[Rfam]
The record is a 145-nucleotide RNA from Gottschalkia purinilytica, which matches "glmS glucosamine-6-phosphate activated ribozyme aptamer" in Rfam. A search with the family's covariance model found it, with a score of 80 bits. Rfam links the family to the GO terms catalytic activity and regulation of gene expression. The family's consensus secondary structure is taken from published work. From the family's description: This entry contains a glucosamine-6-phosphate activated ribozyme that is found in the mRNA for GlmS. GlmS is an enzyme that uses fructose-6-phosphate and glutamine to generate glucosamine-6-phosphate. The ribozyme catalyses self cleavage of the glmS mRNA that is thought to regulate GlmS activity.
RNA sequence: AGUAAUAAGUAAGCGCCAGGACUUCAUAAGAAGUUGACGAGGACAGGGUUAAUCGAAAUUAUCGGCGGGUGCCCUGCGGCUGACCAACGUUAAAAGCCUAACAAAGCUGAGAGUAAUUUCAGUACAAAAGGGUGUGGUCAUGGGU
Numbered sequence: 001a002g003u004a005a006u007a008a009g010u011a012a013g014c015g016c017c018a019g020g021a022c023u024u025c026a027u028a029a030g031a032a033g034u035u036g037a038c039g040a041g042g043a044c045a046g047g048g049u050u051a052a053u054c055g056a057a058a059u060u061a062u063c064g065g066c067g068g069g070u071g072c073c074c075u076g077c078g079g080c081u082g083a084c085c086a087a088c089g090u091u092a093a094a095a096g097c098c099u100a101a102c103a104a105a106g107c108u109g110a111g112a113g114u115a116a117u118u119u120c121a122g123u124a125c126a127a128a129a130g131g132g133u134g135u136g137g138u139c140a141u142g143g144g145u
Stems, first nucleotide, its partner, number of pairs: 020035006044076005053065004077089002094135001097131003107122006